[Rfam]
RNA sequence: UCGCGCCAGCGGUAGGGGCGGAAACCCGGCACUGUCCCUCCCGUCGAGGCCCUCGGUUCGCAAGAACCGGGGGCCUCACUUUUU
Numbered sequence: 001u002c003g004c005g006c007c008a009g010c011g012g013u014a015g016g017g018g019c020g021g022a023a024a025c026c027c028g029g030c031a032c033u034g035u036c037c038c039u040c041c042c043g044u045c046g047a048g049g050c051c052c053u054c055g056g057u058u059c060g061c062a063a064g065a066a067c068c069g070g071g072g073g074c075c076u077c078a079c080u081u082u083u084u
Base pairs, nucleotide, nucleotide: 010043011042012041014039015038016037017036018035048075049074050073051072052071053070054069055068058065059064